[Rfam]
RNA sequence: AUGCACAAUAACUCCUGGGCUUCUCUUGUGGACUUGUUUAAUAUAAAAGCCUCAAUGCUUGUACUAAAAUAGUGCCACUUAGUGCUGUAGUUCAACUUUGAUUGAUCCUCUUUCAUGUCUGCUGUGUGUCAAAUAAGCGGAAACAUAU
Numbered sequence: 001a002u003g004c005a006c007a008a009u010a011a012c013u014c015c016u017g018g019g020c021u022u023c024u025c026u027u028g029u030g031g032a033c034u035u036g037u038u039u040a041a042u043a044u045a046a047a048a049g050c051c052u053c054a055a056u057g058c059u060u061g062u063a064c065u066a067a068a069a070u071a072g073u074g075c076c077a078c079u080u081a082g083u084g085c086u087g088u089a090g091u092u093c094a095a096c097u098u099u100g101a102u103u104g105a106u107c108c109u110c111u112u113u114c115a116u117g118u119c120u121g122c123u124g125u126g127u128g129u130c131a132a133a134u135a136a137g138c139g140g141a142a143a144c145a146u147a148u
Base pairs, nucleotide, nucleotide: 003064005062006061007060008059017052018051019050020049021048022046024043026041075140076139078137079136080135083131084130086126087125088124089123090122091121096117098115
This 148-nucleotide RNA from Morella rubra belongs to the Rfam family "small nucleolar RNA snoR134". On this family, see Chen and Wu, Nucleic Acids Res 2009: "Mining small RNA sequencing data: a new approach to identify small nucleolar RNAs in Arabidopsis". Taxonomically the source falls in Morella (Eukaryota, Viridiplantae, Embryophyta, rosids). By type it is an H/ACA-box small nucleolar RNA. Gene Ontology terms of the family: nucleolus and RNA processing.